[Rfam]
RNA sequence: AGCAUCGAAAUAUUGAUGCUGUUUAAAAUAUGUACUAACUAUUUUUAACAUAAAAUAGCUAGCUGGUUUUUCAAAAAAACUGACAUAUUUUUUUAGUCAGUUAUGUAAAUCUAAAACUUUCCGCUGUGAGAAAAGCGCCUGAAACACAAAUGUUUCAGGCACUCGGAAUUAUUGAGACCUUAGGCUCAAUAAUUAGUCAUGGAACUUCGAAGAAGUUCGCUGACGUCCGUACUCACUUAAGGAAAGUUUUUAGAAGAACUUAUCUUCAUUUGACAGCAUCAACUUUUUGAUGCUGU
Numbered sequence: 001a002g003c004a005u006c007g008a009a010a011u012a013u014u015g016a017u018g019c020u021g022u023u024u025a026a027a028a029u030a031u032g033u034a035c036u037a038a039c040u041a042u043u044u045u046u047a048a049c050a051u052a053a054a055a056u057a058g059c060u061a062g063c064u065g066g067u068u069u070u071u072c073a074a075a076a077a078a079a080c081u082g083a084c085a086u087a088u089u090u091u092u093u094u095a096g097u098c099a100g101u102u103a104u105g106u107a108a109a110u111c112u113a114a115a116a117c118u119u120u121c122c123g124c125u126g127u128g129a130g131a132a133a134a135g136c137g138c139c140u141g142a143a144a145c146a147c148a149a150a151u152g153u154u155u156c157a158g159g160c161a162c163u164c165g166g167a168a169u170u171a172u173u174g175a176g177a178c179c180u181u182a183g184g185c186u187c188a189a190u191a192a193u194u195a196g197u198c199a200u201g202g203a204a205c206u207u208c209g210a211a212g213a214a215g216u217u218c219g220c221u222g223a224c225g226u227c228c229g230u231a232c233u234c235a236c237u238u239a240a241g242g243a244a245a246g247u248u249u250u251u252a253g254a255a256g257a258a259c260u261u262a263u264c265u266u267c268a269u270u271u272g273a274c275a276g277c278a279u280c281a282a283c284u285u286u287u288u289g290a291u292g293c294u295g296u
Stems, first nucleotide, its partner, number of pairs: 003292008013282011025270001027089004033082002040077001042075002047070002096138001140268003146265001148263001150261001152259003158230001161226001168193009178184002196224004202218002205215004240250003

The family of this 296-nucleotide sequence from Streptococcus australis is "Streptococcus sRNA 8".
It is annotated as a small RNA.
Pairs were carried over by alignment from the consensus structure, which was predicted with RNAfold.